[Rfam]
RNA: Pseudomonas sRNA P36
Organism: Pseudomonas sp. TAD18
RNA sequence: AAAACUGUUACCGCACGCUAAACACGUAACAAAAGCCGGGUCUUACGGUAACGAAGGCCCG
Dot-bracket structure: .....((((((.(...........))))))).....(((((((..((....)).)))))))